The record is a 74-nucleotide RNA sequence from secondary endosymbiont of Trabutina mannipara, which matches "tRNA" in Rfam. It scores 61 bits against the family's covariance model. The organism belongs to mealybug secondary endosymbionts, within Bacteria. Pairs were carried over by alignment from the consensus structure, which is taken from published work. Rfam classes the family as a transfer RNA.

[Rfam]
RNA sequence: CGGUGAGUGGCGCAGUCUGGAAGCGCAAUACGUUCGGGACGUAUGGGUCAGAGGUUCAAAUCCUCUCUCACCGA
Dot-bracket structure: (((((((..((((.........)))).(((((.......))))).....(((((.......)))))))))))).